[Rfam]
RNA: MIR4371 microRNA precursor family
RNA sequence: UCGUUAAGUGAUGAUGUGACGAACGAAGUAUCACUUGAUCACACUUUGUCAUUGACACGUCAUUGCCAUAUCAUUAAAGGUGAUGACAUGACAAUGAGGUAUUCGUGAUAAGACAUGAUGACGUGACACUUUGUCUAUCACAUCAUCAUUUAACGAAA
Numbered sequence: 001u002c003g004u005u006a007a008g009u010g011a012u013g014a015u016g017u018g019a020c021g022a023a024c025g026a027a028g029u030a031u032c033a034c035u036u037g038a039u040c041a042c043a044c045u046u047u048g049u050c051a052u053u054g055a056c057a058c059g060u061c062a063u064u065g066c067c068a069u070a071u072c073a074u075u076a077a078a079g080g081u082g083a084u085g086a087c088a089u090g091a092c093a094a095u096g097a098g099g100u101a102u103u104c105g106u107g108a109u110a111a112g113a114c115a116u117g118a119u120g121a122c123g124u125g126a127c128a129c130u131u132u133g134u135c136u137a138u139c140a141c142a143u144c145a146u147c148a149u150u151u152a153a154c155g156a157a158a
Stems, first nucleotide, its partner, number of pairs: 001156019021136001023134007031126004036121001038119004045112002048109005054103002057100002071086004